[Rfam]
RNA sequence: CGGCUUUUUCGCGGCGGAGCUCGACCGCCCACAGCGCUGCUCGUGGACUACAUCGACAGCCACAAGCAGGAGUUCGCCAGUUGUGCCGAUCUGCGCCGUGCUGCAGAUCGCUGCG
Numbered sequence: 001c002g003g004c005u006u007u008u009u010c011g012c013g014g015c016g017g018a019g020c021u022c023g024a025c026c027g028c029c030c031a032c033a034g035c036g037c038u039g040c041u042c043g044u045g046g047a048c049u050a051c052a053u054c055g056a057c058a059g060c061c062a063c064a065a066g067c068a069g070g071a072g073u074u075c076g077c078c079a080g081u082u083g084u085g086c087c088g089a090u091c092u093g094c095g096c097c098g099u100g101c102u103g104c105a106g107a108u109c110g111c112u113g114c115g
Stems, first nucleotide, its partner, number of pairs: 013029005075115003079112002087110002090107006
This 115-nucleotide RNA sequence from Litorihabitans aurantiacus belongs to the Rfam family "ALIL pseudoknot". It scores 54 bits against the family's covariance model. Taxonomically the source falls in Litorihabitans (Bacteria, Bacillati, Actinomycetes, Beutenbergiaceae).